[Rfam]
RNA sequence: UAGUUCUAUAGAGGAGCUUUUAGCAAUAGUAAAUAUUUUAGCAGGCAUGCGUAGAAUAUUGAAAGGGCAUAAGAGCCGAAAUACUUAAAAUGGCGAUUUUAAGUAUUGGUAGAAAAACAUAAAAGAUUUCUACUCUUUGGUUAAAACCAUUGGUGCUAUAGAUUUA
Number, nucleotide and partner (000 for none) at each position: 001u000002a000003g000004u000005u000006c161007u160008a159009u158010a157011g156012a000013g000014g000015a000016g076017c075018u074019u073020u072021u071022a000023g068024c067025a000026a000027u000028a000029g000030u000031a000032a060033a059034u058035a057036u056037u055038u054039u053040a000041g000042c000043a000044g000045g000046c000047a000048u000049g000050c000051g000052u000053a039054g038055a037056a036057u035058a034059u033060u032061g000062a000063a000064a000065g000066g000067g024068c023069a000070u000071a021072a020073g019074a018075g017076c016077c000078g000079a000080a107081a106082u105083a104084c103085u102086u101087a100088a099089a098090a097091u096092g000093g000094c000095g000096a091097u090098u089099u088100u087101a086102a085103g084104u083105a082106u081107u080108g134109g133110u132111a131112g130113a129114a128115a000116a127117a000118c125119a000120u000121a000122a000123a000124a000125g118126a000127u116128u114129u113130c112131u111132a110133c109134u108135c000136u000137u000138u149139g148140g147141u146142u000143a000144a000145a000146a141147c140148c139149a138150u000151u000152g000153g000154u000155g000156c011157u010158a009159u008160a007161g006162a000163u000164u000165u000166a000
RNA: Lysine riboswitch aptamer